RNA sequence: GUUGGCUAUGGAGACAUGUACCCGACGACCAUCGGAGGAAAGAUUGUUGGGUCUCUCUGCGCAAUUGCUGGUGUGCUGACUAUUGCCCUGCCCGUACCCGUCAUUGUGUCCAAC
Numbered sequence: 001g002u003u004g005g006c007u008a009u010g011g012a013g014a015c016a017u018g019u020a021c022c023c024g025a026c027g028a029c030c031a032u033c034g035g036a037g038g039a040a041a042g043a044u045u046g047u048u049g050g051g052u053c054u055c056u057c058u059g060c061g062c063a064a065u066u067g068c069u070g071g072u073g074u075g076c077u078g079a080c081u082a083u084u085g086c087c088c089u090g091c092c093c094g095u096a097c098c099c100g101u102c103a104u105u106g107u108g109u110c111c112a113a114c
Stems, first nucleotide, its partner, number of pairs: 001114002004111002007108005013102003018097004037077002040074001050062001
RNA: Potassium channel RNA editing signal